[Rfam]
RNA sequence: AAGCCAAAUGAUGAGUUUUGAUUAAAUCUCUUACGACGGUCAUCUGAUGUGCUUAUUGUUAGCACUGAUGUAAUGUUCAACACCACUGAUGGUU
Numbered sequence: 001a002a003g004c005c006a007a008a009u010g011a012u013g014a015g016u017u018u019u020g021a022u023u024a025a026a027u028c029u030c031u032u033a034c035g036a037c038g039g040u041c042a043u044c045u046g047a048u049g050u051g052c053u054u055a056u057u058g059u060u061a062g063c064a065c066u067g068a069u070g071u072a073a074u075g076u077u078c079a080a081c082a083c084c085a086c087u088g089a090u091g092g093u094u
Stems, first nucleotide, its partner, number of pairs: 001094002004091001051059002